RNA sequence: UCGGCGCUCCGUCUACAAAUAGAUAAAAUUUCAGUCUAGUCUAUAUAAAGUUUUGAAAAAAGAAGAAGCAAUAAUUACUUUCUUGUUCGGAGGAUGUUAUUGCUCCUUU
Numbered sequence: 001u002c003g004g005c006g007c008u009c010c011g012u013c014u015a016c017a018a019a020u021a022g023a024u025a026a027a028a029u030u031u032c033a034g035u036c037u038a039g040u041c042u043a044u045a046u047a048a049a050g051u052u053u054u055g056a057a058a059a060a061a062g063a064a065g066a067a068g069c070a071a072u073a074a075u076u077a078c079u080u081u082c083u084u085g086u087u088c089g090g091a092g093g094a095u096g097u098u099a100u101u102g103c104u105c106c107u108u109u
Stems, first nucleotide, its partner, number of pairs: 008023002011020002062109004067104008078093001082092003
The record is a 109-nucleotide RNA sequence from Nicotiana sylvestris, which matches "Plastid-psbA-1 3UTR RNA" in Rfam. The family is grouped with related families in Rfam's "Plastid-psbA 3UTR RNA clan". Lineage of the source: Eukaryota > Streptophytina > Embryophyta > Mesangiospermae > Nicotiana.